[Rfam]
RNA sequence: UUGGAGGCACACGACUGGCGCAGGUGGACCACCACCGGGGAGUGACGUUCGUGGGCAUCGCCCGCCUGGGUGCCCGCG
Numbered sequence: 001u002u003g004g005a006g007g008c009a010c011a012c013g014a015c016u017g018g019c020g021c022a023g024g025u026g027g028a029c030c031a032c033c034a035c036c037g038g039g040g041a042g043u044g045a046c047g048u049u050c051g052u053g054g055g056c057a058u059c060g061c062c063c064g065c066c067u068g069g070g071u072g073c074c075c076g077c078g
Stems, first nucleotide, its partner, number of pairs: 004050003010044003015039002017066004024035004055073005
RNA: ZMP/ZTP riboswitch aptamer (pfl RNA motif)